[Rfam]
RNA sequence: AUCUUAUCACGAGAGACUGAGGGACAGGCCCUGUGACGUCCAGCAACCAUCAUUUUAUGAAAGGUGCUAAAUCCUGCAGAGUCAUUCUGAGAGAUAAGGU
Numbered sequence: 001a002u003c004u005u006a007u008c009a010c011g012a013g014a015g016a017c018u019g020a021g022g023g024a025c026a027g028g029c030c031c032u033g034u035g036a037c038g039u040c041c042a043g044c045a046a047c048c049a050u051c052a053u054u055u056u057a058u059g060a061a062a063g064g065u066g067c068u069a070a071a072u073c074c075u076g077c078a079g080a081g082u083c084a085u086u087c088u089g090a091g092a093g094a095u096a097a098g099g100u
Stems, first nucleotide, its partner, number of pairs: 001100008013041001015040003021031003025076004042068004047064002050060003072092001077089005
Dot-bracket structure: ((((((((....(.(((...(((.[[[[)))......))))((((.((.(((.....)))..))))))...(]]]](((((...)))))..)))))))))

SAM riboswitch aptamer (S box leader): a 100-nucleotide RNA sequence from Litchfieldia salsa. Taxonomically the source falls in Litchfieldia (Bacteria, Bacillati, Bacilli, Caryophanales). The match comes from Rfam's covariance-model search (85 bits).